Shown here is an 80-nucleotide RNA from Streptococcus downei, a member of the family "L17 ribosomal protein downstream element". NCBI's taxonomy places the organism under Bacteria, Bacillati, Bacillota, Streptococcus, Streptococcus downei.
RNA sequence: UGAGUGUUAUGAUGAUGGAUACCUAAACUCUGGUAUCUUAGUCUAGCUCUGGUCUACCGCUGAGAGGAGGCUCUCAGCGG
Numbered sequence: 001u002g003a004g005u006g007u008u009a010u011g012a013u014g015a016u017g018g019a020u021a022c023c024u025a026a027a028c029u030c031u032g033g034u035a036u037c038u039u040a041g042u043c044u045a046g047c048u049c050u051g052g053u054c055u056a057c058c059g060c061u062g063a064g065a066g067g068a069g070g071c072u073c074u075c076a077g078c079g080g
Stems, first nucleotide, its partner, number of pairs: 002049004011043003017038006057080009
Dot-bracket structure: .((((.....(((...((((((..........))))))..)))..)))).......(((((((((......)))))))))